Rfam assigns this 91-nucleotide sequence from Blautia sp. CAG:37 to the family "Glycine riboswitch aptamer". This family represents the bacterial glycine riboswitch. The base pairs follow the family's consensus structure.

RNA sequence: GGAGUGGUCUCUGGAGAAGCUCUUGAAAAGAGUGCCGAAGGUGCAAUGCAGCGAUGCAGAAUCUCUCAGGCAAAAGGACAGAGUCAAAAAA
Number, nucleotide and partner (000 for none) at each position: 001g000002g000003a000004g000005u000006g000007g085008u000009c083010u082011c081012u080013g079014g000015a000016g000017a000018a000019g000020c032021u031022c030023u029024u000025g000026a000027a000028a000029a023030g022031a021032g020033u000034g071035c070036c069037g067038a066039a000040g000041g065042u000043g063044c000045a000046a000047u058048g057049c000050a000051g000052c000053g000054a000055u000056g000057c048058a047059g000060a000061a000062u000063c043064u000065c041066u038067c037068a000069g036070g035071c034072a000073a000074a000075a000076g000077g000078a000079c013080a012081g011082a010083g009084u000085c007086a000087a000088a000089a000090a000091a000